[Rfam]
RNA: S10-Clostridia ribosomal protein leader
Organism: Cohnella sp. CIP 111063
RNA sequence: ACUGUGCGAUGAUGUGAGAGGUUGCCGACACACCCGGCCCCUUUGCCAUAAGGGCGGCCAACGGUGCAAGUCGGGUUAUUCUCACGGAGUAUGUCCGAUUCCAAAAUUGGGCGA
Numbered sequence: 001a002c003u004g005u006g007c008g009a010u011g012a013u014g015u016g017a018g019a020g021g022u023u024g025c026c027g028a029c030a031c032a033c034c035c036g037g038c039c040c041c042u043u044u045g046c047c048a049u050a051a052g053g054g055c056g057g058c059c060a061a062c063g064g065u066g067c068a069a070g071u072c073g074g075g076u077u078a079u080u081c082u083c084a085c086g087g088a089g090u091a092u093g094u095c096c097g098a099u100u101c102c103a104a105a106a107u108u109g110g111g112c113g114a
Stems, first nucleotide, its partner, number of pairs: 014085003018081003021077001025074005094114002099111003